[Rfam]
RNA sequence: GGCAAAUGCACUCUGUGUCACAUUGAUUUUACACCUCGUGUGAUGACAAUUUGUUAGUUUGCCAAAGGAAAGAGUGGCGUCUUAUCCAUGUUCUCAAUUUUAACCCUCAAGUUGAUCACAUUGAAAAUGCUUCUUACACCA
Numbered sequence: 001g002g003c004a005a006a007u008g009c010a011c012u013c014u015g016u017g018u019c020a021c022a023u024u025g026a027u028u029u030u031a032c033a034c035c036u037c038g039u040g041u042g043a044u045g046a047c048a049a050u051u052u053g054u055u056a057g058u059u060u061g062c063c064a065a066a067g068g069a070a071a072g073a074g075u076g077g078c079g080u081c082u083u084a085u086c087c088a089u090g091u092u093c094u095c096a097a098u099u100u101u102a103a104c105c106c107u108c109a110a111g112u113u114g115a116u117c118a119c120a121u122u123g124a125a126a127a128u129g130c131u132u133c134u135u136a137c138a139c140c141a
Base pairs, nucleotide, nucleotide: 002062003061004060005059006058007057010054011053014048015047016046017044018043019042020041021040022039023038025037026036068140070135071134072133074132076130078129079128085124086123088121089120090119091118094115095114097112098111
Dot-bracket structure: .((((((..((..((((((((((.((.........))))))))).)))....))..)))))).....(.(((.(.(.((.....((.((((..((.((............)).))..)))).))...))).))))....).